[Rfam]
The record is an 87-nucleotide RNA from Theobroma umbraticum, which matches "small nucleolar RNA snoR114" in Rfam. Gene Ontology terms of the family: RNA processing and nucleolus. Pairs were carried over by alignment from the consensus structure, which was predicted with RNAalifold. For this family Rfam cites "Mining small RNA sequencing data: a new approach to identify small nucleolar RNAs in Arabidopsis" (Chen and Wu, Nucleic Acids Res, 2009).
RNA sequence: GAGCUGCGACGAAUGUUGUGCCUCCUUGAUAGUAGGGUCUAUCAUUAGUGUCUGUUUCUUGGGACAGAAUUGGUUACAUUUGAGCUC
Numbered sequence: 001g002a003g004c005u006g007c008g009a010c011g012a013a014u015g016u017u018g019u020g021c022c023u024c025c026u027u028g029a030u031a032g033u034a035g036g037g038u039c040u041a042u043c044a045u046u047a048g049u050g051u052c053u054g055u056u057u058c059u060u061g062g063g064a065c066a067g068a069a070u071u072g073g074u075u076a077c078a079u080u081u082g083a084g085c086u087c
Stems, first nucleotide, its partner, number of pairs: 001087004